Record summary
This 99-nucleotide RNA sequence belongs to the Rfam family "Guanidine-I riboswitch aptamer". It is one of the family's seed sequences. The literature on the family includes a 2004 paper in Proc Natl Acad Sci U S A by Barrick et al., "New RNA motifs suggest an expanded scope for riboswitches in bacterial genetic control". The pairing is the family consensus, mapped onto this sequence.
[Rfam]
RNA sequence: ACUAAAGGUAGCUAGGGUUCCGACUUAUUUAUAAGUGUCUGGUCCGAGAGCAACCGACUCUUAAAUAGAGUUACACGGAGGGAUAAAAGCCCGGGAGGU
Numbered sequence: 001a002c003u004a005a006a007g008g009u010a011g012c013u014a015g016g017g018u019u020c021c022g023a024c025u026u027a028u029u030u031a032u033a034a035g036u037g038u039c040u041g042g043u044c045c046g047a048g049a050g051c052a053a054c055c056g057a058c059u060c061u062u063a064a065a066u067a068g069a070g071u072u073a074c075a076c077g078g079a080g081g082g083a084u085a086a087a088a089g090c091c092c093g094g095g096a097g098g099u
Stems, first nucleotide, its partner, number of pairs: 007055003011051002015045002020042002022039001023036005056072006074094001076097001080092003